Rfam assigns this 108-nucleotide RNA sequence from Pantoea sp. Eser to the family "Salmonella mgtC leader RNA". Rfam links the family to the GO term regulation of gene expression. A search with the family's covariance model found it, with a score of 83 bits. Pairs were carried over by alignment from the consensus structure. A reference for the family is Choi et al. (2017), "A trans-acting leader RNA from a Salmonella virulence gene", Proc Natl Acad Sci U S A. The source organism's lineage runs through Bacteria, Pseudomonadota, Enterobacterales, Erwiniaceae and Pantoea. About the family: From mgtCBR operon, decreases flagellin production during infection by directly base pairing with mRNAs of the fljB gene encoding flagellin and promotes fljBA mRNA degradation.
RNA sequence: CAAAUUAUUUCAGGAGAAUUAAGUUGGACAGUCACCCUAAAUUAACCUUUAUUCUGGCAAGCUGAAUUUUUUUCGCUGCUUGCCAACCGGUGGGCAGCAAUCCUCUCU
Numbered sequence: 001c002a003a004a005u006u007a008u009u010u011c012a013g014g015a016g017a018a019u020u021a022a023g024u025u026g027g028a029c030a031g032u033c034a035c036c037c038u039a040a041a042u043u044a045a046c047c048u049u050u051a052u053u054c055u056g057g058c059a060a061g062c063u064g065a066a067u068u069u070u071u072u073u074c075g076c077u078g079c080u081u082g083c084c085a086a087c088c089g090g091u092g093g094g095c096a097g098c099a100a101u102c103c104u105c106u107c108u
Stems, first nucleotide, its partner, number of pairs: 004043001006041001013036002067085001089107002092104003